[Rfam]
RNA sequence: AAUUGAACAAGAAGAAUCCUUCAUAUAUACUCGACAAUAUGGGUCGAACGUUUCUACCAGAUCACCGUAAAUGAUCUGACUAUGAAGGCAGCUUUCUAUUUG
Numbered sequence: 001a002a003u004u005g006a007a008c009a010a011g012a013a014g015a016a017u018c019c020u021u022c023a024u025a026u027a028u029a030c031u032c033g034a035c036a037a038u039a040u041g042g043g044u045c046g047a048a049c050g051u052u053u054c055u056a057c058c059a060g061a062u063c064a065c066c067g068u069a070a071a072u073g074a075u076c077u078g079a080c081u082a083u084g085a086a087g088g089c090a091g092c093u094u095u096c097u098a099u100u101u102g
Base pairs, nucleotide, nucleotide: 018088019087020086021085022084023083024082025081031047032046033045034044035043058078059077060076061075062074063073064072

The family of this 102-nucleotide sequence from Litchfieldia salsa is "Purine riboswitch aptamer". The base pairs follow the family's consensus structure, which is taken from published work. About the family: Riboswitches are metabolite binding domains within certain messenger RNAs that serve as precision sensors for their corresponding targets. It scores 91 bits against the family's covariance model. The literature on the family includes a 2003 paper in Cell by Mandal et al., "Riboswitches Control Fundamental Biochemical Pathways in Bacillus subtilis and Other Bacteria". Gene Ontology term of the family: purine nucleobase biosynthetic process.